Shown here is a 172-nucleotide sequence from Sarcina ventriculi, a member of the family "Lysine riboswitch aptamer". NCBI's taxonomy places the organism under Bacteria, Bacillota, Clostridia, Eubacteriales, Sarcina. The base pairs follow the family's consensus structure, which is taken from published work. On this family, see Rodionov et al., Nucleic Acids Res 2003: "Regulation of lysine biosynthesis and transport genes in bacteria: yet another RNA riboswitch?".

[Rfam]
RNA sequence: AACUAAGAUAGAGGUGCAAAAUUUAAGAGUACUGUUAUGGAGGUAAGCUCAAUGAAGUAAUAGAAAAGGAAAUUUUGCCGAAGUUAAUAGUGGAAGCUUUAAAGCUAUUAGCUGGUUUUGUAUAAAAUAUAUACACGACUGUCACAUUUUUUUGUGGAGAGCUAUUAUUCAA
Numbered sequence: 001a002a003c004u005a006a007g008a009u010a011g012a013g014g015u016g017c018a019a020a021a022u023u024u025a026a027g028a029g030u031a032c033u034g035u036u037a038u039g040g041a042g043g044u045a046a047g048c049u050c051a052a053u054g055a056a057g058u059a060a061u062a063g064a065a066a067a068g069g070a071a072a073u074u075u076u077g078c079c080g081a082a083g084u085u086a087a088u089a090g091u092g093g094a095a096g097c098u099u100u101a102a103a104g105c106u107a108u109u110a111g112c113u114g115g116u117u118u119u120g121u122a123u124a125a126a127a128u129a130u131a132u133a134c135a136c137g138a139c140u141g142u143c144a145c146a147u148u149u150u151u152u153u154g155u156g157g158a159g160a161g162c163u164a165u166u167a168u169u170c171a172a
Base pairs, nucleotide, nucleotide: 007166008165009164010163011162016078017077018076019075020074021073022072023071024070032063033062034061035060036059037058038057082113083112084111085110086109087108088107089106090105091104114140115139116138117137119135120134121133122132123131124130142157143156144155145154146153